[Rfam]
RNA: Plant small nucleolar RNA R71
RNA sequence: AGGCCAUGGUGUGGACACCAUUUCUGCAAUUACUUAAAUCUUUCCCAAGCCUCAUAUAAUGACUCACCAUCAUGUUGCACAAAAGUAGUGAUAUCAUUUCUGAGUUU
Dot-bracket structure: (.((((..................................................((..............))..........................)).)).)
Numbered sequence: 001a002g003g004c005c006a007u008g009g010u011g012u013g014g015a016c017a018c019c020a021u022u023u024c025u026g027c028a029a030u031u032a033c034u035u036a037a038a039u040c041u042u043u044c045c046c047a048a049g050c051c052u053c054a055u056a057u058a059a060u061g062a063c064u065c066a067c068c069a070u071c072a073u074g075u076u077g078c079a080c081a082a083a084a085g086u087a088g089u090g091a092u093a094u095c096a097u098u099u100c101u102g103a104g105u106u107u
Stems, first nucleotide, its partner, number of pairs: 001107001003105002005102002057074002